The record is a 28-nucleotide RNA sequence, which matches "L19-Flavobacteria ribosomal protein leader" in Rfam. Pairs were carried over by alignment from the consensus structure, which is taken from published work. It is one of the family's seed sequences. It is annotated as a cis-regulatory leader.
[Rfam]
RNA sequence: UAACCUCUGGCGAGGGACGUGUAUGUUG
Numbered sequence: 001u002a003a004c005c006u007c008u009g010g011c012g013a014g015g016g017a018c019g020u021g022u023a024u025g026u027u028g
Stems, first nucleotide, its partner, number of pairs: 001028004008023001010020003